[Rfam]
RNA sequence: GUGGGGGGACGCGACUGGCGCUAGUCGAGGUGGAGUUCACCACCGGGAAGCGAAUCCGUCCGCACACCGCGCGCCUGGGUGUCGGCC
Numbered sequence: 001g002u003g004g005g006g007g008g009a010c011g012c013g014a015c016u017g018g019c020g021c022u023a024g025u026c027g028a029g030g031u032g033g034a035g036u037u038c039a040c041c042a043c044c045g046g047g048a049a050g051c052g053a054a055u056c057c058g059u060c061c062g063c064a065c066a067c068c069g070c071g072c073g074c075c076u077g078g079g080u081g082u083c084g085g086c087c
Stems, first nucleotide, its partner, number of pairs: 003059001005057003010052003015047002017075005030043004064082005
The record is an 87-nucleotide sequence from Actinomadura craniellae, which matches "ZMP/ZTP riboswitch aptamer (pfl RNA motif)" in Rfam. Pairs were carried over by alignment from the consensus structure, which is taken from published work. The match comes from Rfam's covariance-model search (49 bits).